[Rfam]
Nucleotides: 181
Stems, first nucleotide, its partner, number of pairs: 006041005012035007063077004067169001069167005078102008087094002105131009134161008
Number, partner (000 for none) and nucleotide at each position: 001000c002000c003000a004000g005000g006041u007040g008039g009038g010037u011000u012035c013034u014033g015032c016031c017030u018029a019000c020000u021000c022000c023000a024000c025000a026000u027000a028000a029018u030017a031016g032015g033014c034013a035012g036000c037010a038009u039008c040007c041006g042000c043000u044000a045000a046000a047000u048000u049000a050000a051000a052000g053000g054000a055000g056000g057000a058000u059000a060000a061000c062000c063077c064076c065075g066074u067169u068000g069167g070166a071165c072164g073163c074066a075065c076064g077063g078102u079101g080100c081099g082098g083097c084096a085095g086000u087094g088093u089000g090000g091000a092000g093088a094087c095085c096084u097083g098082u099081c100080g101079u102078a103000a104000u105131g106130c107129u108128g109127c110126c111125g112124g113123g114000a115000u116000a117000u118000g119000a120000c121000c122000g123113c124112u125111u126110g127109g128108c129107a130106g131105c132000g133000a134161g135160g136159g137158c138157a139156c140155a141154u142000g143000c144000g145000a146000a147000a148000u149000g150000g151000u152000a153000g154141g155140u156139g157138u158137g159136c160135c161134u162000g163073g164072c165071g166070u167069c168000a169067a170000a171000g172000a173000a174000g175000u176000a177000u178000g179000g180000c181000a